Small nucleolar RNA SNORA64/SNORA10 family: a 127-nucleotide sequence from Muntiacus reevesi.
About the family: This family belongs to the H/ACA class of small nucleolar RNAs (snoRNAs) which act as guides in the the modification of uridines to pseudouridines. This family includes the human snoRNAs U64 and ACA10 and mouse MBI-29.
Rfam classes the family as an H/ACA-box small nucleolar RNA.
The literature on the family includes a 1999 paper in EMBO J by Narayanan et al., "Nucleolar localization signals of box H/ACA small nucleolar RNAs".
RNA sequence: CUUCUCUCAGCUCCACUUAGCCACAUUGUGUGUCGUGGGCGUAUUUUCAGAGAAAGAGAGGAAGGCUCUCCUAAUGCACGACAGACUGGCCUACAGUGGCCUGUUUGUUCCUAGGAGCGCAACAGCC
Numbered sequence: 001c002u003u004c005u006c007u008c009a010g011c012u013c014c015a016c017u018u019a020g021c022c023a024c025a026u027u028g029u030g031u032g033u034c035g036u037g038g039g040c041g042u043a044u045u046u047u048c049a050g051a052g053a054a055a056g057a058g059a060g061g062a063a064g065g066c067u068c069u070c071c072u073a074a075u076g077c078a079c080g081a082c083a084g085a086c087u088g089g090c091c092u093a094c095a096g097u098g099g100c101c102u103g104u105u106u107g108u109u110c111c112u113a114g115g116a117g118c119g120c121a122a123c124a125g126c127c
Stems, first nucleotide, its partner, number of pairs: 002060006011052003020036002023033004068117005074112001076110001083106003088101004